[Rfam]
RNA: mir-181 microRNA precursor family
RNA sequence: UGGCUGCAAUAAACAUUCAUUGCUGUCGGUGGGUUGUAGUUUAGAAUAGCUCAUUGAUCAAUGAAUGCAAACUGCAGGCCA
Numbered sequence: 001u002g003g004c005u006g007c008a009a010u011a012a013a014c015a016u017u018c019a020u021u022g023c024u025g026u027c028g029g030u031g032g033g034u035u036g037u038a039g040u041u042u043a044g045a046a047u048a049g050c051u052c053a054u055u056g057a058u059c060a061a062u063g064a065a066u067g068c069a070a071a072c073u074g075c076a077g078g079c080c081a
Stems, first nucleotide, its partner, number of pairs: 001081003004077005014067009025058007033050003